Rfam assigns this 153-nucleotide RNA from Methylocystis sp. B8 to the family "TPP riboswitch aptamer (THI element)". Rfam describes the family as follows. Vitamin B(1) in its active form thiamin pyrophosphate (TPP) is an essential coenzyme that is synthesised by coupling of pyrimidine and thiazole moieties in bacteria. The previously detected thiamin-regulatory element, thi box was extended, resulting in a new, highly conserved RNA secondary structure, the THI element, which is widely distributed in eubacteria and also occurs in some archaea. Pairs were carried over by alignment from the consensus structure, which is taken from published work.
RNA sequence: UAGAUGCGCCGGGGGAGCCCCGCCCGGCGGCGCGCUGCCAAGUUCGCCGCAAGGGGCUGAGAGGCCGCAUGAGGCGCUGCGAGGCGCGGGAGCGGCGACCCUUCGAACCUGAUCCAGUUGAGACUGGCGGAGGGAUGGUGUCAGCGAAAAUUC
Numbered sequence: 001u002a003g004a005u006g007c008g009c010c011g012g013g014g015g016a017g018c019c020c021c022g023c024c025c026g027g028c029g030g031c032g033c034g035c036u037g038c039c040a041a042g043u044u045c046g047c048c049g050c051a052a053g054g055g056g057c058u059g060a061g062a063g064g065c066c067g068c069a070u071g072a073g074g075c076g077c078u079g080c081g082a083g084g085c086g087c088g089g090g091a092g093c094g095g096c097g098a099c100c101c102u103u104c105g106a107a108c109c110u111g112a113u114c115c116a117g118u119u120g121a122g123a124c125u126g127g128c129g130g131a132g133g134g135a136u137g138g139u140g141u142c143a144g145c146g147a148a149a150a151u152u153c
Base pairs, nucleotide, nucleotide: 006141007140008139009138010137011102012101013100014099017057018056019055020054021053064096065095066094067093068092108133109132110131114127115126116125117124